Shown here is a 107-nucleotide RNA sequence from Ornithinibacillus halophilus, a member of the family "BsrF". For this family Rfam cites "Novel small RNA-encoding genes in the intergenic regions of Bacillus subtilis" (Saito et al., Gene, 2008). Rfam classes the family as a small RNA.
RNA sequence: GCGAUGAGCUGAUUUGUGUAAGACGAGGAAUGGUAUACAUGUGGAUGUGAACACAUGAUUCCUCGCCACAAAUAUACGUAGAAAACGUCUGUAUUUAUACAGACGUU
Number, nucleotide and partner (000 for none) at each position: 001g000002c000003g000004a000005u000006g000007a000008g000009c000010u000011g000012a000013u000014u071015u070016g069017u068018g067019u000020a000021a000022g000023a000024c065025g064026a063027g062028g061029a060030a059031u058032g000033g000034u000035a000036u000037a000038c057039a056040u000041g054042u053043g052044g000045a000046u000047g000048u000049g000050a000051a000052c043053a042054c041055a000056u039057g038058a031059u030060u029061c028062c027063u026064c025065g024066c000067c018068a017069c016070a015071a014072a000073u000074a000075u000076a000077c000078g000079u000080a000081g000082a000083a000084a107085a106086c105087g104088u103089c102090u101091g100092u099093a000094u000095u000096u000097a000098u000099a092100c091101a090102g089103a088104c087105g086106u085107u084